[Rfam]
About this RNA
A member of the RNA family "MIR6152 microRNA precursor family" from Nicotiana sylvestris, 106 nucleotides long.

RNA sequence: UGGACAGAUUAUUGUAUUCGACUUUAUUCGAUUGUCUUCACAGCGUGAAACAGGGGGUUACACUGGUUUUAAACGGAAAGUGAAUCAAUUAACAUAAUAGACUCUA
Numbered sequence: 001u002g003g004a005c006a007g008a009u010u011a012u013u014g015u016a017u018u019c020g021a022c023u024u025u026a027u028u029c030g031a032u033u034g035u036c037u038u039c040a041c042a043g044c045g046u047g048a049a050a051c052a053g054g055g056g057g058u059u060a061c062a063c064u065g066g067u068u069u070u071a072a073a074c075g076g077a078a079a080g081u082g083a084a085u086c087a088a089u090u091a092a093c094a095u096a097a098u099a100g101a102c103u104c105u106a
Base pairs, nucleotide, nucleotide: 002105003104004103009100010099011098012097013096014095015094017092018091030090031089033087034086037084038083039082040081041080044075045074046073047069048068049067051065052064053063